[Rfam]
RNA: Small nucleolar RNA SNORD121A
Organism: Anseranas semipalmata
RNA sequence: UGCCAGAAAACUAUGAUGUGAUAUAUCCAAGCACAUAUCUGACGGCUUUUGUGGAAACAUGACUAUUUCUGAGUUUUCUGGAG
Numbered sequence: 001u002g003c004c005a006g007a008a009a010a011c012u013a014u015g016a017u018g019u020g021a022u023a024u025a026u027c028c029a030a031g032c033a034c035a036u037a038u039c040u041g042a043c044g045g046c047u048u049u050u051g052u053g054g055a056a057a058c059a060u061g062a063c064u065a066u067u068u069c070u071g072a073g074u075u076u077u078c079u080g081g082a083g
Base pairs, nucleotide, nucleotide: 001083003081004080005079006078008076009075010074011073